The record is a 44-nucleotide RNA from Methanococcus voltae, which matches "eL15-Euryarchaeota ribosomal protein leader" in Rfam.
NCBI's taxonomy places the organism under Archaea, Methanobacteriota, Methanococcales, Methanococcaceae, Methanococcus voltae.
It is one of the family's seed sequences.
Rfam classes the family as a cis-regulatory leader.
RNA sequence: CGGGAGUAAUCCCGUAGGGAAUGUAGCGAAUGCCGAACCCGGAA
Number, nucleotide and partner (000 for none) at each position: 001c014002g013003g012004g011005a010006g000007u000008a000009a000010u005011c004012c003013c002014g001015u000016a000017g040018g039019g038020a000021a000022u000023g000024u000025a000026g033027c032028g000029a000030a000031u000032g027033c026034c000035g000036a000037a000038c019039c018040c017041g000042g000043a000044a000